[Rfam]
RNA: Small nucleolar RNA SNORD89
Organism: Labrus bergylta
RNA sequence: ACUGGGACAUGAUGUGAACAAAAGGCCGAAUUGUAGCGCCCCCGCCAGGCAGCGUGUUCUCAGAGCGGGGGUGCUGUGACAAAAAAUCGACCGAAGCGUUUGUCUGAUCCCAGU
Numbered sequence: 001a002c003u004g005g006g007a008c009a010u011g012a013u014g015u016g017a018a019c020a021a022a023a024g025g026c027c028g029a030a031u032u033g034u035a036g037c038g039c040c041c042c043c044g045c046c047a048g049g050c051a052g053c054g055u056g057u058u059c060u061c062a063g064a065g066c067g068g069g070g071g072u073g074c075u076g077u078g079a080c081a082a083a084a085a086a087u088c089g090a091c092c093g094a095a096g097c098g099u100u101u102g103u104c105u106g107a108u109c110c111c112a113g114u
Base pairs, nucleotide, nucleotide: 001114002113003112004111005110006109007108014104025034026033035100036099037098038097042093044091046089048088052074053073055071057069058068059067076087